[Rfam]
RNA sequence: UGGACCGCUAAAGAGGCUGUGAUCUGUUGCUCAUGAUCAAAUCACAGCCUGCUUUGGUGAGCCUUC
Numbered sequence: 001u002g003g004a005c006c007g008c009u010a011a012a013g014a015g016g017c018u019g020u021g022a023u024c025u026g027u028u029g030c031u032c033a034u035g036a037u038c039a040a041a042u043c044a045c046a047g048c049c050u051g052c053u054u055u056g057g058u059g060a061g062c063c064u065u066c
Stems, first nucleotide, its partner, number of pairs: 006059008014050009025041001027039001

Shown here is a 66-nucleotide RNA sequence from Pomacea canaliculata, a member of the family "mir-2 microRNA precursor family". On this family, see Lee and Ambros, Science 2001: "An extensive class of small RNAs in Caenorhabditis elegans". The family has 56 seed sequences and 918 matches in Rfam 15.1. It scores 48 bits against the family's covariance model.